The family of this 86-nucleotide RNA from Peribacillus saganii is "Group II catalytic intron D1-D4-1".
From the family's description: Group II introns are found in rRNA, tRNA and mRNA of organelles in fungi, plants and protists, and also in mRNA in bacteria.

RNA sequence: UAACCUGUCCAGAGAUGGACCGCUGAACAAUCAGAAGUCAGCAGAGGUCAUAGUACCUUGCCAACUCGAGAAGGCAUGGGAAGGGC
Numbered sequence: 001u002a003a004c005c006u007g008u009c010c011a012g013a014g015a016u017g018g019a020c021c022g023c024u025g026a027a028c029a030a031u032c033a034g035a036a037g038u039c040a041g042c043a044g045a046g047g048u049c050a051u052a053g054u055a056c057c058u059u060g061c062c063a064a065c066u067c068g069a070g071a072a073g074g075c076a077u078g079g080g081a082a083g084g085g086c
Base pairs, nucleotide, nucleotide: 001025002024005022007020008019009018010017011016038045039044047086048085049084056079057078059076060075061074
Its family is annotated with Group II intron splicing in the Gene Ontology. For this family Rfam cites "The ins and outs of group II introns" (Bonen and Vogel, Trends Genet, 2001).